[Rfam]
RNA sequence: CCUGUACCAGUGGGGUCCCUCAGCCUGGCCUGCAGUAUUGGGCCAAAACUGGCUCUCCUAUAUCCCCUGAGGGGUCCCAAAUUGCGAGAGGGUGCAGGCCAGGCUGAGGGACCCCACUGGUGCAUG
Numbered sequence: 001c002c003u004g005u006a007c008c009a010g011u012g013g014g015g016u017c018c019c020u021c022a023g024c025c026u027g028g029c030c031u032g033c034a035g036u037a038u039u040g041g042g043c044c045a046a047a048a049c050u051g052g053c054u055c056u057c058c059u060a061u062a063u064c065c066c067c068u069g070a071g072g073g074g075u076c077c078c079a080a081a082u083u084g085c086g087a088g089a090g091g092g093u094g095c096a097g098g099c100c101a102g103g104c105u106g107a108g109g110g111a112c113c114c115c116a117c118u119g120g121u122g123c124a125u126g
Stems, first nucleotide, its partner, number of pairs: 003124002006121001008119003012115014027100008